[Rfam]
RNA sequence: GAAGAAGAAACUGAAAAUCUAAUAGAGUAGGAA
Numbered sequence: 001g002a003a004g005a006a007g008a009a010a011c012u013g014a015a016a017a018u019c020u021a022a023u024a025g026a027g028u029a030g031g032a033a
Stems, first nucleotide, its partner, number of pairs: 003020003011031002
Dot-bracket structure: ..(((.....[[.....))).........]]..
A member of the RNA family "DUF805b RNA" from Tupaia belangeri, 33 nucleotides long. Rfam classes the family as a cis-regulatory element. The family is grouped with related families in Rfam's "DUF805 clan".